RNA sequence: AUUUUAUCCAGAGAGGUGGAGGGAUUUGGCCCUACGAAACCUCGGCAACAGAUCAGAUUAUGAUACUGUGCCAAUUCCAACAAGCAUAACCGUGCUUGGUAGAUAAGGU
Numbered sequence: 001a002u003u004u005u006a007u008c009c010a011g012a013g014a015g016g017u018g019g020a021g022g023g024a025u026u027u028g029g030c031c032c033u034a035c036g037a038a039a040c041c042u043c044g045g046c047a048a049c050a051g052a053u054c055a056g057a058u059u060a061u062g063a064u065a066c067u068g069u070g071c072c073a074a075u076u077c078c079a080a081c082a083a084g085c086a087u088a089a090c091c092g093u094g095c096u097u098g099g100u101a102g103a104u105a106a107g108g109u
Stems, first nucleotide, its partner, number of pairs: 001109008013043005021032003026080004044072004049068002052064003076101001081098006
SAM riboswitch aptamer (S box leader): a 109-nucleotide sequence from Listeria booriae.
The organism belongs to Listeria, within Bacteria.
Rfam describes the family as follows. The SAM riboswitch is found upstream of a number of genes which code for proteins involved in methionine or cysteine biosynthesis in Gram-positive bacteria.